[Rfam]
This 159-nucleotide RNA sequence from Pseudescherichia vulneris belongs to the Rfam family "sok antitoxin (CssrC)". Rfam describes the family as follows. Also identified in Shigella as CssrC.
RNA sequence: GGGUGCUUGAGGCUUUUUGUGGCUUCAGGCAUGUCGGGAGUCCAGAAAGUUGAAAGCCCCAGGAGAUAUUUCUAUCAACCUGAGGCUAACGACCAAACCCAACAAUUUGGAUGUUAGCCCCUUCUUUGCAUGGAGGCAAUAACAUGCCGACGAAAUAUG
Number, nucleotide and partner (000 for none) at each position: 001g060002g059003g058004u000005g057006c056007u055008u054009g000010a000011g051012g050013c049014u048015u047016u046017u045018u044019g043020u000021g000022g041023c040024u039025u000026c038027a000028g000029g035030c000031a000032u000033g000034u000035c029036g000037g000038g026039a024040g023041u022042c000043c019044a018045g017046a016047a015048a014049g013050u012051u011052g000053a000054a008055a007056g006057c005058c003059c002060c001061a081062g080063g079064a000065g076066a075067u074068a073069u000070u000071u000072c000073u068074a067075u066076c065077a000078a000079c063080c062081u061082g121083a000084g119085g118086c117087u000088a000089a114090c113091g112092a000093c110094c109095a108096a107097a106098c000099c000100c000101a000102a000103c000104a000105a000106u097107u096108u095109g094110g093111a000112u091113g090114u089115u000116a000117g086118c085119c084120c000121c082122u000123u000124c000125u150126u149127u000128g000129c146130a145131u000132g000133g000134a000135g000136g000137c000138a000139a000140u000141a000142a000143c000144a000145u130146g129147c000148c000149g126150a125151c000152g000153a000154a000155a000156u000157a000158u000159g000
Rfam links the family to the GO term mRNA binding. The source organism's lineage runs through Bacteria, Pseudomonadota, Gammaproteobacteria, Enterobacteriaceae and Pseudescherichia vulneris.